[Rfam]
RNA: SAM/SAH riboswitch aptamer
Organism: Phaeobacter sp. CECT 5382
RNA sequence: UACCUCACACAACGGCUUCCUGGCGUGGCGAGGUGAAAUCCAAUGGAGCA
Number, nucleotide and partner (000 for none) at each position: 001u000002a000003c000004c032005u031006c000007a000008c027009a026010c025011a000012a000013c022014g021015g049016c048017u047018u000019c046020c045021u014022g013023g000024c000025g010026u009027g008028g000029c000030g000031a005032g004033g000034u000035g000036a000037a000038a000039u000040c000041c000042a000043a000044u000045g020046g019047a017048g016049c015050a000